[Rfam]
The record is a 152-nucleotide RNA sequence from Marivita geojedonensis, which matches "Ruegeria cis2 sRNA" in Rfam.
The base pairs follow the family's consensus structure, which was predicted with RNAfold.
The family's RNA type in Rfam is small RNA.
RNA sequence: UUCGUAUUCCGCGGAACAUAGUUGAUGAAGGCGUAUCCUCGGGCUUGGUCGAUGGUGUGGAACAGUGGGUUCCAGUCGAACAUGGCGAUCAUGAAGCCGGGCAGGGAAUUGGCAACGAACAUCUUGCCCGACGCGAUCAUGUUCGCGCGUUU
Numbered sequence: 001u002u003c004g005u006a007u008u009c010c011g012c013g014g015a016a017c018a019u020a021g022u023u024g025a026u027g028a029a030g031g032c033g034u035a036u037c038c039u040c041g042g043g044c045u046u047g048g049u050c051g052a053u054g055g056u057g058u059g060g061a062a063c064a065g066u067g068g069g070u071u072c073c074a075g076u077c078g079a080a081c082a083u084g085g086c087g088a089u090c091a092u093g094a095a096g097c098c099g100g101g102c103a104g105g106g107a108a109u110u111g112g113c114a115a116c117g118a119a120c121a122u123c124u125u126g127c128c129c130g131a132c133g134c135g136a137u138c139a140u141g142u143u144c145g146c147g148c149g150u151u152u
Stems, first nucleotide, its partner, number of pairs: 003033003007029002012024003037055002040051003064151004069081004085146004090141004097133001100129002102126005109118003